[Rfam]
RNA sequence: AAUUGACUUCAGGGCAGGGUGUGAUUCCCUACCGGCGGUACAGCCCGCGAGCCGAAAGGCAUGAUUCGGUUAGAUUCCGAAGCCGACAGUUAUAGUCUGGAUGGGAGAAGCUUUUA
Numbered sequence: 001a002a003u004u005g006a007c008u009u010c011a012g013g014g015c016a017g018g019g020u021g022u023g024a025u026u027c028c029c030u031a032c033c034g035g036c037g038g039u040a041c042a043g044c045c046c047g048c049g050a051g052c053c054g055a056a057a058g059g060c061a062u063g064a065u066u067c068g069g070u071u072a073g074a075u076u077c078c079g080a081a082g083c084c085g086a087c088a089g090u091u092a093u094a095g096u097c098u099g100g101a102u103g104g105g106a107g108a109a110g111c112u113u114u115u116a
Base pairs, nucleotide, nucleotide: 005112007110008109009108010107017029018028019027031096032095033085034084035048036047037046038045043083044082053059065081066080067079068078069077087099088098089097